RNA sequence: UUGGCGAAUGCCUGUGGAUCUACAUUUGUUGCGGGUUCGAGACCCGUCAGAGCCCGGCUCUGUAGCUCAAUGGUAGAGCGGUGUAUUCACAUAAACUUGUCGCCACCCU
Numbered sequence: 001u002u003g004g005c006g007a008a009u010g011c012c013u014g015u016g017g018a019u020c021u022a023c024a025u026u027u028g029u030u031g032c033g034g035g036u037u038c039g040a041g042a043c044c045c046g047u048c049a050g051a052g053c054c055c056g057g058c059u060c061u062g063u064a065g066c067u068c069a070a071u072g073g074u075a076g077a078g079c080g081g082u083g084u085a086u087u088c089a090c091a092u093a094a095a096c097u098u099g100u101c102g103c104c105a106c107c108c109u
Stems, first nucleotide, its partner, number of pairs: 002105006013091007023083004031047006038073001048062006065079004
The record is a 109-nucleotide RNA from Salmonella enterica, which matches "Y RNA-like" in Rfam. Rfam 15.1 lists 124 matches to the family in 99 species. The family's consensus secondary structure is taken from published work. On this family, see Wang et al., Structure 2018: "Structural Basis for tRNA Mimicry by a Bacterial Y RNA". In Deinococcus radiodurans Rsr is tethered via Y RNA to the exoribonuclease PNPase and channels single-stranded RNA into the PNPase cavity. Rsr and Y RNA enhance degradation of structured RNAs by PNPase. The family's RNA type in Rfam is small RNA.